[Rfam]
RNA sequence: AAGACUAUACUUUCAGGGAUCAUUUCUAUAGUUUGUUACUAGAGAAGUUUCUCUGAACGUGUAGGGUACCCGAAACCACGAGGAGGAGGCGCAGUGUUCUCUCCUGAGCGUGAAGCCUGCUUUUGGUGUUGCUUAUGCAACUGCCAAUUGCAAUUGAUGAUCGUUCUUCUUCUCCAUUGGAGGAGCAAGAGGGAGAGAACGCAGUCUGAGUGGU
Numbered sequence: 001a002a003g004a005c006u007a008u009a010c011u012u013u014c015a016g017g018g019a020u021c022a023u024u025u026c027u028a029u030a031g032u033u034u035g036u037u038a039c040u041a042g043a044g045a046a047g048u049u050u051c052u053c054u055g056a057a058c059g060u061g062u063a064g065g066g067u068a069c070c071c072g073a074a075a076c077c078a079c080g081a082g083g084a085g086g087a088g089g090c091g092c093a094g095u096g097u098u099c100u101c102u103c104c105u106g107a108g109c110g111u112g113a114a115g116c117c118u119g120c121u122u123u124u125g126g127u128g129u130u131g132c133u134u135a136u137g138c139a140a141c142u143g144c145c146a147a148u149u150g151c152a153a154u155u156g157a158u159g160a161u162c163g164u165u166c167u168u169c170u171u172c173u174c175c176a177u178u179g180g181a182g183g184a185g186c187a188a189g190a191g192g193g194a195g196a197g198a199a200c201g202c203a204g205u206c207u208g209a210g211u212g213g214u
Base pairs, nucleotide, nucleotide: 002040003039006035007034009032010031011030015027016026017025018024049065050064054061075214076213077212078211079210094202095201096200097199098198099197100196101195102194103193104192105191108164109163110162118152119151120150124146125145126144127143128141129140130139131138132137167188168187169185170184171183172182173181174180175179